[Rfam]
RNA sequence: CGGAGGCCUGAGAAGGUUAAACAGCUUUUGUUGUGCUGUUGUAACUGGUUAUAACCUCCAAAAGUAAUAAACAAACCACCCAGCCUUGUCUCUCUGUCCUAACACAGAGCAGAUUUG
Numbered sequence: 001c002g003g004a005g006g007c008c009u010g011a012g013a014a015g016g017u018u019a020a021a022c023a024g025c026u027u028u029u030g031u032u033g034u035g036c037u038g039u040u041g042u043a044a045c046u047g048g049u050u051a052u053a054a055c056c057u058c059c060a061a062a063a064g065u066a067a068u069a070a071a072c073a074a075a076c077c078a079c080c081c082a083g084c085c086u087u088g089u090c091u092c093u094c095u096g097u098c099c100u101a102a103c104a105c106a107g108a109g110c111a112g113a114u115u116u117g
Stems, first nucleotide, its partner, number of pairs: 002059005015046004020040006087117002094112004099107002
Rfam assigns this 117-nucleotide RNA from Gouania willdenowi to the family "Small nucleolar RNA SNORA47". A reference for the family is Huttenhofer et al. (2001), "RNomics: an experimental approach that identifies 201 candidates for novel, small, non-messenger RNAs in mouse", EMBO J. Pairs were carried over by alignment from the consensus structure, which was predicted with WAR.